[Rfam]
A member of the RNA family "t44 RNA" from Pseudomonas sp. TTU2014-080ASC, 98 nucleotides long. About the family: This family consists of a number of bacterial RNA genes of between 135 and 170 bases in length. The family's consensus secondary structure was predicted with LocARNA. Taxonomically the source falls in Pseudomonas (Bacteria, Pseudomonadati, Gammaproteobacteria, Pseudomonadales).

RNA sequence: UGCCCGCAAGCAUUAACCCACACACGUAUCGACACGGUUUCCUGGGUGCCCUGAUGAGUAAUUGUCGGGUUGGAAAUCGGGAUGCGUGGAGGCCUAAC
Number, nucleotide and partner (000 for none) at each position: 001u000002g000003c000004c000005c000006g000007c000008a000009a000010g000011c000012a000013u000014u000015a000016a000017c000018c000019c000020a000021c000022a000023c088024a087025c086026g085027u084028a083029u082030c081031g000032a000033c000034a000035c079036g078037g077038u076039u075040u074041c073042c072043u000044g000045g000046g000047u000048g070049c069050c068051c067052u000053g000054a000055u000056g000057a000058g000059u000060a000061a000062u000063u000064g000065u000066c000067g051068g050069g049070u048071u000072g042073g041074a040075a039076a038077u037078c036079g035080g000081g030082a029083u028084g027085c026086g025087u024088g023089g000090a000091g000092g000093c000094c000095u000096a000097a000098c000